[Rfam]
RNA: Small nucleolar RNA SNORD103/SNORD85
RNA sequence: GCUGGCGAUGACGACACUCUUGCCCUCACUGAGAACUGCAGUCGCUGACAAGAGCAGCUCUCUGCGCUCACUGGAGCCGAGCCAGA
Numbered sequence: 001g002c003u004g005g006c007g008a009u010g011a012c013g014a015c016a017c018u019c020u021u022g023c024c025c026u027c028a029c030u031g032a033g034a035a036c037u038g039c040a041g042u043c044g045c046u047g048a049c050a051a052g053a054g055c056a057g058c059u060c061u062c063u064g065c066g067c068u069c070a071c072u073g074g075a076g077c078c079g080a081g082c083c084a085g086a
Base pairs, nucleotide, nucleotide: 002085003084004083005082006081